Source information
The family of this 80-nucleotide RNA sequence from Acanthosepion pharaonis is "mir-190 microRNA precursor family". Clan: mir-50 clan. The family's consensus secondary structure was predicted with RNAalifold. Gene Ontology terms of the family: miRNA-mediated post-transcriptional gene silencing and RISC complex.
RNA sequence: GCCUUGACCAGAUAUGUUUGAUAUUUUUUGGUGGUAGCAUAUUCUAUUCCACCAAGUAUCAAUCAUGUCCGCGUUGUGGC
Numbered sequence: 001g002c003c004u005u006g007a008c009c010a011g012a013u014a015u016g017u018u019u020g021a022u023a024u025u026u027u028u029u030g031g032u033g034g035u036a037g038c039a040u041a042u043u044c045u046a047u048u049c050c051a052c053c054a055a056g057u058a059u060c061a062a063u064c065a066u067g068u069c070c071g072c073g074u075u076g077u078g079g080c
Base pairs, nucleotide, nucleotide: 005076006075007074008073011069012068013067014066015065016064018062019061020060021059022058023057024056025055030053031052032051033050034049